[Rfam]
RNA sequence: AUAAUCUGAGGUGAUGGGGCUCGCCUUAACUGCCAUCUGGAAAUUGACAUGACAACCAGAAGGCUGAUGGCUCCUACUGUUCC
Numbered sequence: 001a002u003a004a005u006c007u008g009a010g011g012u013g014a015u016g017g018g019g020c021u022c023g024c025c026u027u028a029a030c031u032g033c034c035a036u037c038u039g040g041a042a043a044u045u046g047a048c049a050u051g052a053c054a055a056c057c058a059g060a061a062g063g064c065u066g067a068u069g070g071c072u073c074c075u076a077c078u079g080u081u082c083c
Stems, first nucleotide, its partner, number of pairs: 010025004016074006032064003
RNA: Fluoride riboswitch aptamer (crcB RNA motif)